A member of the RNA family "Y RNA" from Rhinopithecus roxellana, 136 nucleotides long. It scores 43 bits against the family's covariance model. Rfam describes the family as follows. Y RNAs are components of the Ro ribonucleoprotein particle (Ro RNP), in association with Ro60 and La proteins. The Y RNAs and Ro60 and La proteins are well conserved, but the function of the Ro RNP is not known. In humans the RNA component can be one of four small RNAs -- hY1, hY3, hY4 and hY5. These small RNAs are predicted to fold into a conserved secondary structure containing three stem structures. Lineage of the source: Eukaryota > Euteleostomi > Amniota > Eutheria > Rhinopithecus. The family's RNA type in Rfam is non-coding RNA gene.
RNA sequence: GGCUGGUCUGAAGGUAGUCAGUUAUCUUAAUUGACUGUUCACAGUCAGUUACCUUGACUAUUCACAGUCAGUUACAAAUUGAACUCCUUGUUCUACUCUUUCCCCUCUUCUUAAUAGGGCACUUGAUUAGUUUUUU
Numbered sequence: 001g002g003c004u005g006g007u008c009u010g011a012a013g014g015u016a017g018u019c020a021g022u023u024a025u026c027u028u029a030a031u032u033g034a035c036u037g038u039u040c041a042c043a044g045u046c047a048g049u050u051a052c053c054u055u056g057a058c059u060a061u062u063c064a065c066a067g068u069c070a071g072u073u074a075c076a077a078a079u080u081g082a083a084c085u086c087c088u089u090g091u092u093c094u095a096c097u098c099u100u101u102c103c104c105c106u107c108u109u110c111u112u113a114a115u116a117g118g119g120c121a122c123u124u125g126a127u128u129a130g131u132u133u134u135u136u
Stems, first nucleotide, its partner, number of pairs: 001132008010124002014120002016115001018113001020111002067097001070094002